Histone 3' UTR stem-loop: a 46-nucleotide sequence from Galemys pyrenaicus. Pairs were carried over by alignment from the consensus structure, which is taken from published work. It is annotated as a cis-regulatory element. From the family's description: The mRNAs of metazoan histone genes lack a poly-A tail. 3' end processing occurs at a site between a highly conserved stem-loop (modelled by this family) and a purine rich region around 20 nts downstream (the histone downstream element, or HDE). The family has 50 seed sequences and 44,596 matches in Rfam 15.1.

[Rfam]
RNA sequence: CCAAAGGCUCUUUUCAGAGCCACCCACAGACUCUGAAAAAAGCUGU
Numbered sequence: 001c002c003a004a005a006g007g008c009u010c011u012u013u014u015c016a017g018a019g020c021c022a023c024c025c026a027c028a029g030a031c032u033c034u035g036a037a038a039a040a041a042g043c044u045g046u
Stems, first nucleotide, its partner, number of pairs: 006021006
Dot-bracket structure: .....((((((....)))))).........................